The record is a 53-nucleotide sequence from Nocardia higoensis, which matches "L31-Actinobacteria ribosomal protein leader" in Rfam. Clan: Ribosomal Protein L31 Leader clan. NCBI's taxonomy places the organism under Bacteria, Actinomycetota, Actinomycetes, Nocardia, Nocardia higoensis. The base pairs follow the family's consensus structure, which is taken from published work. A reference for the family is Eckert and Weinberg (2020), "Discovery of 20 novel ribosomal leader candidates in bacteria and archaea", BMC Microbiol.

RNA sequence: UCGGUCCCGGUUCACGUCCCGAUCACGAAAACGAUCUGGGCGACCCGGCGGCC
Dot-bracket structure: ..(((.((((....(((((.(((..........))).)))))..))))..)))